[Rfam]
RNA sequence: AAAAAGGCUCUUUUCAGAGCCACCCACAAACUCACUUGAAAGAAGU
Numbered sequence: 001a002a003a004a005a006g007g008c009u010c011u012u013u014u015c016a017g018a019g020c021c022a023c024c025c026a027c028a029a030a031c032u033c034a035c036u037u038g039a040a041a042g043a044a045g046u
Base pairs, nucleotide, nucleotide: 006021007020008019009018010017011016
RNA: Histone 3' UTR stem-loop